The record is a 98-nucleotide RNA sequence from Curtobacterium sp. ISL-83, which matches "mraW RNA" in Rfam. The source organism's lineage runs through Bacteria, Actinomycetota, Actinomycetes, Microbacteriaceae and Curtobacterium. The family's consensus secondary structure is taken from published work.
[Rfam]
RNA sequence: UCUGAUCCGUGGAUCGGGACUCCCAGCCGUCCGCCCUGACACACCUUCCCCGGUGUCAGGUCGCAUGGAUGGGGAUCCGGACCCGCGGCCCAGGAGAC
Numbered sequence: 001u002c003u004g005a006u007c008c009g010u011g012g013a014u015c016g017g018g019a020c021u022c023c024c025a026g027c028c029g030u031c032c033g034c035c036c037u038g039a040c041a042c043a044c045c046u047u048c049c050c051c052g053g054u055g056u057c058a059g060g061u062c063g064c065a066u067g068g069a070u071g072g073g074g075a076u077c078c079g080g081a082c083c084c085g086c087g088g089c090c091c092a093g094g095a096g097a098c
Base pairs, nucleotide, nucleotide: 010085011084012083014081015080018077019076021074022073023072024071025070027068028067029066030065032063033062035060036059037058038057039056040055041054042053